[Rfam]
RNA: Selenocysteine insertion sequence 1
Organism: Parambassis ranga
RNA sequence: CUGGCGGUAAUGAAGGUCUGGCCUUAAAGCAGACUCUGCAGGGCCUUGCCGGAUGUCCCCUGCCAC
Numbered sequence: 001c002u003g004g005c006g007g008u009a010a011u012g013a014a015g016g017u018c019u020g021g022c023c024u025u026a027a028a029g030c031a032g033a034c035u036c037u038g039c040a041g042g043g044c045c046u047u048g049c050c051g052g053a054u055g056u057c058c059c060c061u062g063c064c065a066c
Stems, first nucleotide, its partner, number of pairs: 002065004015050003020045005030038003